[Rfam]
RNA sequence: UUUGUGACUGUAAACAUCCCCGACUGGAAGCUGUGUAAAACGUGGCGAGCUUUCAGUAGGAUGUUUGCUGCCACUGG
Numbered sequence: 001u002u003u004g005u006g007a008c009u010g011u012a013a014a015c016a017u018c019c020c021c022g023a024c025u026g027g028a029a030g031c032u033g034u035g036u037a038a039a040a041c042g043u044g045g046c047g048a049g050c051u052u053u054c055a056g057u058a059g060g061a062u063g064u065u066u067g068c069u070g071c072c073a074c075u076g077g
Base pairs, nucleotide, nucleotide: 002076004074005073006072008070010068011067012066013065014064015063016062017061018060019059023057024056025055026054027053028052029051030050031049032048

This 77-nucleotide RNA sequence from Electrophorus electricus belongs to the Rfam family "mir-30 microRNA precursor family". The family has 175 seed sequences and 3,879 matches in Rfam 15.1. This family consists of the mammalian microRNA (miRNA) precursor mir-30a. Gene Ontology terms of the family: RISC complex and gene silencing by miRNA. Lineage of the source: Eukaryota > Craniata > Osteoglossocephalai > Otophysi > Electrophorus. On this family, see Mourelatos et al., Genes Dev 2002: "miRNPs: a novel class of ribonucleoproteins containing numerous microRNAs". It scores 73 bits against the family's covariance model.